Source information
The family of this 29-nucleotide sequence from Calyptomena viridis is "L19-Flavobacteria ribosomal protein leader". A reference for the family is Eckert and Weinberg (2020), "Discovery of 20 novel ribosomal leader candidates in bacteria and archaea", BMC Microbiol.
[Rfam]
RNA sequence: UAACCUCUGAAAAUAUGUUUUGCAUGUUG
Numbered sequence: 001u002a003a004c005c006u007c008u009g010a011a012a013a014u015a016u017g018u019u020u021u022g023c024a025u026g027u028u029g
Base pairs, nucleotide, nucleotide: 001029002028003027004026008024010021011020012019013018